Shown here is a 61-nucleotide RNA from Ziziphus jujuba, a member of the family "Plastid-psbN 5UTR RNA". On this family, see Richter et al., Plant Commun 2023: "Retrograde signaling in plants: A critical review focusing on the GUN pathway and beyond". Rfam's curators write: Plastid psbN is a non-coding RNA (ncRNA) recognised in plastids. It was reported as a conserved 11 stem-loop in the prime untranslated region (5UTR) of psbN genes. It has been reported that the motif is retained in a subset of mature transcripts in barley, which can suggests a possible role in transcript alternative 5 prime processing. The family's consensus secondary structure was predicted with LocARNA.
RNA sequence: UGUGAUACUGAUCAAAGGAGUAGUUUCCCACCUAGGAGCUACUUUACUGUAUUCUAAAUUC
Dot-bracket structure: ................(((((((((((.......)))))))))))................